RNA: Cardiovirus cis-acting replication element (CRE)
RNA sequence: UCGGCCAUAAACACCCAGUCAGCCGUUGGUCGA
Numbered sequence: 001u002c003g004g005c006c007a008u009a010a011a012c013a014c015c016c017a018g019u020c021a022g023c024c025g026u027u028g029g030u031c032g033a
Stems, first nucleotide, its partner, number of pairs: 001033007011026002